Shown here is a 259-nucleotide RNA sequence from Halalkalibacter oceani, a member of the family "BsrG". Rfam links the family to the GO terms toxin activity and autolysis. Taxonomically the source falls in Halalkalibacter (Bacteria, Bacillati, Bacilli, Bacillaceae). A search with the family's covariance model found it, with a score of 144 bits. The literature on the family includes a 2008 paper in Gene by Saito et al., "Novel small RNA-encoding genes in the intergenic regions of Bacillus subtilis". Rfam's curators write: bsrE, bsrG and bsrH pair through intermolecular interactions with antisense sRNAs. They form type I toxin/antitoxin system that includes an mRNA encoding for a short, toxic peptide (bsrE, bsrG and bsrH) and an antitoxin that is comprised of an antisense RNA. bsrG encodes a 39-amino-acid toxin, and the 180 nucleotide antisense sRNA called SR4 acts as the antitoxin (they overlap by 123 nucleotides). SR4 interaction with the 3'UTR of bsrG RNA promotes bsrG degradation and inhibits its translation. BsrG interferes with cell envelope biosynthesis, causes membrane invaginations and delocalisation of the cell wall synthesis and initiates autolysis. bsrE RNA encodes 30 amino-acid toxin peptide. Its antitoxin gene, SR5 overlaps by 112 nucleotides at the 3' end of bsrE. SR5 also overlaps bsrG from nucleotide 163 to 52 (Rfam overlap check). The antitoxin SR5 promotes bsrE degradation but unlike SR4 it does not directly inhibits toxin mRNA translation.
[Rfam]
RNA sequence: UACAAUAGGAUAGGCUCUCUCAAGGGCGGUCUGGCUCAUCCCCUGCCGAAAGGGGGUGAGGCCAAUGACAGUAUACGAAGCACUUACAUUGAUGAUUGCUUUUGGCGUUCUCGUCGCCAUACUGUCGCAAGAUAAACAGAAAUAGACCUCCCUUGAGCCUCGGAAACUUACGGGAUGGUCUAUUUCAUCAGAUUAUGGAGCCAGCCGCUCUUUAUGGAGCAACUGUUGUACACGACCGGAAGUGUUCGCGCACUUUCGG
Numbered sequence: 001u002a003c004a005a006u007a008g009g010a011u012a013g014g015c016u017c018u019c020u021c022a023a024g025g026g027c028g029g030u031c032u033g034g035c036u037c038a039u040c041c042c043c044u045g046c047c048g049a050a051a052g053g054g055g056g057u058g059a060g061g062c063c064a065a066u067g068a069c070a071g072u073a074u075a076c077g078a079a080g081c082a083c084u085u086a087c088a089u090u091g092a093u094g095a096u097u098g099c100u101u102u103u104g105g106c107g108u109u110c111u112c113g114u115c116g117c118c119a120u121a122c123u124g125u126c127g128c129a130a131g132a133u134a135a136a137c138a139g140a141a142a143u144a145g146a147c148c149u150c151c152c153u154u155g156a157g158c159c160u161c162g163g164a165a166a167c168u169u170a171c172g173g174g175a176u177g178g179u180c181u182a183u184u185u186c187a188u189c190a191g192a193u194u195a196u197g198g199a200g201c202c203a204g205c206c207g208c209u210c211u212u213u214a215u216g217g218a219g220c221a222a223c224u225g226u227u228g229u230a231c232a233c234g235a236c237c238g239g240a241a242g243u244g245u246u247c248g249c250g251c252a253c254u255u256u257c258g259g
Stems, first nucleotide, its partner, number of pairs: 001230005007224002011221001013206004019157008029147004036059003040055005067126007081094002104118004167191002207220004236259010